[Rfam]
RNA sequence: UUGAAGUAAGAAGCGCCAGAACUACCUGAGACGUAGUUGACGAGGAGGAGUUUAUCGAGAUUUCGGCGGAUGGCUCCCGGUUGUUCAUCACAACCGAAAACUUUUACUUAAAGCAUUGGGGUGACUCAAUGGACAAAGGUGAAAGUGUGAUGAGAG
Numbered sequence: 001u002u003g004a005a006g007u008a009a010g011a012a013g014c015g016c017c018a019g020a021a022c023u024a025c026c027u028g029a030g031a032c033g034u035a036g037u038u039g040a041c042g043a044g045g046a047g048g049a050g051u052u053u054a055u056c057g058a059g060a061u062u063u064c065g066g067c068g069g070a071u072g073g074c075u076c077c078c079g080g081u082u083g084u085u086c087a088u089c090a091c092a093a094c095c096g097a098a099a100a101c102u103u104u105u106a107c108u109u110a111a112a113g114c115a116u117u118g119g120g121g122u123g124a125c126u127c128a129a130u131g132g133a134c135a136a137a138g139g140u141g142a143a144a145g146u147g148u149g150a151u152g153a154g155a156g
Base pairs, nucleotide, nucleotide: 020038021037022036023035024034025033027031047077048076049075050074051073055066056065057064058063078096079095080094081093082092083091100146101145102144103143104142105141106140114131115130116129117128118127119126120125
glmS glucosamine-6-phosphate activated ribozyme aptamer: a 156-nucleotide RNA. About the family: This entry contains a glucosamine-6-phosphate activated ribozyme that is found in the mRNA for GlmS. GlmS is an enzyme that uses fructose-6-phosphate and glutamine to generate glucosamine-6-phosphate. The ribozyme catalyses self cleavage of the glmS mRNA that is thought to regulate GlmS activity. Gene Ontology terms of the family: regulation of gene expression and catalytic activity. Rfam classes the family as a riboswitch.